Rfam assigns this 159-nucleotide RNA sequence from Paenibacillus sp. KS1 to the family "c-di-AMP riboswitch aptamer (ydaO/yuaA leader)". NCBI's taxonomy places the organism under Bacteria, Bacillati, Caryophanales, Paenibacillaceae, Paenibacillus.
RNA sequence: AUUGCAUACAAGCCGAGUUUCGUGAAUGAACGAAAGCGGGGGACCCGAUAAAUGGGGUGAAUAUCGCAGUUGUGGAUGCAUAGAAUCCACUUGCGAUUAGGGCAGCCUGAACGUGCCCGAAUCCGACAGCUAACCUCGUAGGCAUGUACGUCAGGAUAC
Numbered sequence: 001a002u003u004g005c006a007u008a009c010a011a012g013c014c015g016a017g018u019u020u021c022g023u024g025a026a027u028g029a030a031c032g033a034a035a036g037c038g039g040g041g042g043a044c045c046c047g048a049u050a051a052a053u054g055g056g057g058u059g060a061a062u063a064u065c066g067c068a069g070u071u072g073u074g075g076a077u078g079c080a081u082a083g084a085a086u087c088c089a090c091u092u093g094c095g096a097u098u099a100g101g102g103c104a105g106c107c108u109g110a111a112c113g114u115g116c117c118c119g120a121a122u123c124c125g126a127c128a129g130c131u132a133a134c135c136u137c138g139u140a141g142g143c144a145u146g147u148a149c150g151u152c153a154g155g156a157u158a159c
Stems, first nucleotide, its partner, number of pairs: 012143003018035006036139006046054002055124003063097007100118004